Source information:
Shown here is a 136-nucleotide sequence from Origma solitaria, a member of the family "Small Cajal body specific RNA 3". Rfam's curators write: scaRNAs are a specific class of small nuclear RNAs which localise to the Cajal bodies and guide the modification of RNA polymerase II transcribed spliceosomal RNAs U1, U2, U4, U5 and U12. It scores 104 bits against the family's covariance model. For this family Rfam cites "Cajal body-specific small nuclear RNAs: a novel class of 2'-O-methylation and pseudouridylation guide RNAs" (Darzacq et al., EMBO J, 2002). Rfam links the family to the GO terms RNA processing, Cajal body and nucleolus. It is annotated as a small Cajal body RNA.

RNA sequence: GCUGGGACCAGUUGGAACCAGUCAUGGGCAAAAUACAUAUUUUUUUGUCCACUCUUGCAGUCUUCCUAGAGCAAAGUGGAGGUCUCUGUCUGCUUUAGGACAGCUAACUAAAUCAGAUCGUUCCCCUCCAUACAUG
Number, nucleotide and partner (000 for none) at each position: 001g000002c000003u000004g066005g065006g064007a000008c000009c060010a000011g058012u057013u000014g000015g000016a000017a000018c000019c000020a000021g000022u000023c000024a000025u000026g050027g049028g048029c047030a000031a000032a044033a043034u000035a000036c000037a000038u000039a000040u000041u000042u000043u033044u032045u000046u000047g029048u028049c027050c026051a000052c000053u000054c000055u000056u000057g012058c011059a000060g009061u000062c000063u000064u006065c005066c004067u000068a000069g000070a000071g000072c000073a000074a000075a000076g000077u000078g129079g128080a127081g126082g125083u000084c000085u000086c120087u000088g118089u117090c116091u000092g114093c000094u112095u111096u110097a109098g108099g000100a000101c000102a000103g000104c000105u000106a000107a000108c098109u097110a096111a095112a094113u000114c092115a000116g090117a089118u088119c000120g086121u000122u000123c000124c000125c082126c081127u080128c079129c078130a000131u000132a000133c000134a000135u000136g000